The record is a 123-nucleotide sequence from Agrobacterium tumefaciens, which matches "Rhizobiales sRNA Atu_L6" in Rfam. Rfam classes the family as a small RNA.
[Rfam]
RNA sequence: AAUAAAUCGGGGGCAUGGGCACCUUGCGGCAUUGAGAGCCGUGCCCAUUCUUUUUCAUUUCGGCGAGGGGACCCGACGGAUCGUUCGUUACUCGGUGAGUGGCGAGCGAUCUGUGGUUCCAGU
Number, nucleotide and partner (000 for none) at each position: 001a000002a000003u000004a000005a000006a000007u000008c000009g000010g000011g000012g000013g027014c026015a000016u000017g023018g000019g000020c000021a000022c000023c017024u000025u000026g014027c013028g064029g000030c062031a000032u000033u000034g061035a060036g059037a058038g000039c000040c000041g000042u000043g000044c000045c000046c000047a000048u000049u000050c000051u000052u000053u000054u000055u000056c000057a000058u037059u036060u035061c034062g030063g000064c028065g000066a000067g000068g120069g119070g118071a117072c116073c000074c115075g000076a114077c113078g112079g111080a110081u109082c108083g107084u106085u105086c104087g103088u102089u101090a100091c099092u098093c097094g000095g000096u000097g093098a092099g091100u090101g089102g088103c087104g086105a085106g084107c083108g082109a081110u080111c079112u078113g077114u076115g074116g072117u071118u070119c069120c068121a000122g000123u000

The literature on the family includes a 2012 paper in RNA Biol by Wilms et al., "Deep sequencing uncovers numerous small RNAs on all four replicons of the plant pathogen Agrobacterium tumefaciens".